Selenocysteine insertion sequence 1: a 65-nucleotide sequence from Suricata suricatta.
RNA sequence: GUGUGCAAAUGAUAACUACUGAUGAAAGAGUCGCUGGCUCAGUUAGUGGUUGGAUGUCGUCACAU
Numbered sequence: 001g002u003g004u005g006c007a008a009a010u011g012a013u014a015a016c017u018a019c020u021g022a023u024g025a026a027a028g029a030g031u032c033g034c035u036g037g038c039u040c041a042g043u044u045a046g047u048g049g050u051u052g053g054a055u056g057u058c059g060u061c062a063c064a065u
Stems, first nucleotide, its partner, number of pairs: 001065005014051010029039003
Dot-bracket structure: (((((........((((((((((.....(((.....)))..)))))))))).........)))))
A search with the family's covariance model found it, with a score of 36 bits. Gene Ontology term of the family: selenocysteine incorporation. The source organism's lineage runs through Eukaryota, Deuterostomia, Euteleostomi, Feliformia and Suricata.